[Rfam]
RNA sequence: GCGUACCUUGUUGGAGAGAGGCGCGGGUGCUGGCACCCCGUCCACCGAAGGAGCAAGCCCCACGCCUGGAAGGUGCGGGUGAAUCUCUCAGGUAAAGCGGACAACAGGGCAAAG
Dot-bracket structure: .....((((((((......((((...............)))).(((((..(((...((((................))))....))))).)))........)))))))).....
RNA: Glycine riboswitch aptamer
Organism: Comamonas terrigena